A member of the RNA family "SAM (S-adenosyl methionine) riboswitch aptamer" from Sanguibacter suaedae, 116 nucleotides long. The organism belongs to Sanguibacter, within Bacteria.

[Rfam]
RNA sequence: GGUCACGAGUGCCAGCAGAAUGCCCCGGCUUGCUGGCCGGCAACCCUCCUCCGCGGUGGGGUGCCCCGGGUGAAGACCUGGCCGGACGUCGCCCGACGCCCCGGCAAGCGCGGGGU
Number, nucleotide and partner (000 for none) at each position: 001g078002g077003u076004c075005a000006c000007g000008a000009g038010u000011g037012c036013c035014a034015g033016c032017a000018g000019a000020a000021u000022g029023c000024c000025c000026c000027g000028g000029c022030u000031u000032g016033c015034u014035g013036g012037c011038c009039g065040g064041c063042a000043a000044c061045c060046c059047u000048c056049c055050u000051c000052c000053g000054c000055g049056g048057u000058g000059g046060g045061g044062u000063g041064c040065c039066c000067c000068g000069g000070g000071u000072g000073a000074a000075g004076a003077c002078c001079u000080g000081g105082c104083c103084g102085g101086a000087c098088g097089u096090c095091g000092c000093c000094c000095g090096a089097c088098g087099c000100c000101c085102c084103g083104g082105c081106a000107a000108g000109c000110g000111c000112g000113g000114g000115g000116u000
It scores 104 bits against the family's covariance model. The base pairs follow the family's consensus structure, which is taken from published work. About the family: SAM-IV is a mRNA element that regulates gene expression via direct sensing of S-adenosylmethionine (SAM or AdoMet).